[Rfam]
RNA sequence: CGGAGGACUGAGAAAAUAAGGCAGUUGCACGUACUGCAUUUAUUGGUUAUCACCUCCAAAAUCAAAAUGGUGCAAACGCAAAUCAUGUUCCUUUGACCAUAUAGGAAUAUGGCUGCUGGUUGCAUAUACAGU
Numbered sequence: 001c002g003g004a005g006g007a008c009u010g011a012g013a014a015a016a017u018a019a020g021g022c023a024g025u026u027g028c029a030c031g032u033a034c035u036g037c038a039u040u041u042a043u044u045g046g047u048u049a050u051c052a053c054c055u056c057c058a059a060a061a062u063c064a065a066a067a068u069g070g071u072g073c074a075a076a077c078g079c080a081a082a083u084c085a086u087g088u089u090c091c092u093u094u095g096a097c098c099a100u101a102u103a104g105g106a107a108u109a110u111g112g113c114u115g116c117u118g119g120u121u122g123c124a125u126a127u128a129c130a131g132u
Stems, first nucleotide, its partner, number of pairs: 002057005015044004019039001021037005078123002082120002085117001086115002093107002097104001
Rfam assigns this 132-nucleotide RNA sequence from Anolis carolinensis to the family "Small nucleolar RNA SNORA47".
Rfam 15.1 lists 733 matches to the family in 635 species.
Pairs were carried over by alignment from the consensus structure, which was predicted with WAR.
Its family is annotated with RNA processing and nucleolus in the Gene Ontology.
The source organism's lineage runs through Eukaryota, Chordata, Vertebrata, Euteleostomi and Anolis.